[Rfam]
RNA: Mu-gpT-DE RNA
RNA sequence: CCCUGACAGCGACAAUCGCUGACACUAGCCACGACAGGAGACAACCAUG
Numbered sequence: 001c002c003c004u005g006a007c008a009g010c011g012a013c014a015a016u017c018g019c020u021g022a023c024a025c026u027a028g029c030c031a032c033g034a035c036a037g038g039a040g041a042c043a044a045c046c047a048u049g
Stems, first nucleotide, its partner, number of pairs: 002038004007021005